[Rfam]
RNA sequence: AGGAGUGCUCUGCUGUGAGAACUGAAUUCCAUAGAUGGUGACAUUUGUAUGUGUCAUCUAUGGGCUCAGUUCUUUUGGCUUGGUACUGUUUU
Number, nucleotide and partner (000 for none) at each position: 001a000002g000003g000004a000005g000006u000007g000008c083009u082010c000011u000012g079013c078014u000015g000016u000017g000018a073019g072020a071021a070022c069023u068024g067025a066026a000027u000028u000029c000030c000031a000032u000033a059034g058035a057036u056037g000038g000039u000040g000041a000042c000043a000044u000045u000046u000047g000048u000049a000050u000051g000052u000053g000054u000055c000056a036057u035058c034059u033060a000061u000062g000063g000064g000065c000066u025067c024068a023069g022070u021071u020072c019073u018074u000075u000076u000077g000078g013079c012080u000081u000082g009083g008084u000085a000086c000087u000088g000089u000090u000091u000092u000
RNA: mir-146 microRNA precursor family